[Rfam]
RNA sequence: GAUUUGUGGUGAUGAAUUAUGAACAUACUUCGCAUGUCAGACUUUGGAGAUGUUUCUGGCAUCAAUAAGAAGAUCAUUCAUAUAACUGAGUAAUGC
Number, nucleotide and partner (000 for none) at each position: 001g096002a000003u000004u093005u092006g091007u090008g000009g000010u000011g000012a000013u000014g000015a000016a000017u000018u000019a000020u000021g000022a000023a000024c000025a000026u000027a000028c000029u000030u000031c000032g000033c000034a000035u000036g000037u000038c000039a000040g000041a000042c000043u000044u000045u000046g000047g000048a000049g063050a062051u061052g060053u000054u000055u000056c000057u000058g000059g000060c052061a051062u050063c049064a000065a000066u000067a000068a000069g000070a000071a000072g000073a000074u000075c000076a000077u000078u000079c000080a000081u000082a000083u000084a000085a000086c000087u000088g000089a000090g007091u006092a005093a004094u000095g000096c001
Notes
This 96-nucleotide RNA sequence from Zea mays belongs to the Rfam family "Small nucleolar RNA R64/Z200 family". Pairs were carried over by alignment from the consensus structure, which was predicted with PFOLD. Its family is annotated with RNA processing and nucleolus in the Gene Ontology. The literature on the family includes a 2002 paper in Mol Cell Biol by Galardi et al., "Purified box C/D snoRNPs are able to reproduce site-specific 2'-O-methylation of target RNA in vitro". The match comes from Rfam's covariance-model search (74 bits). By type it is a C/D-box small nucleolar RNA.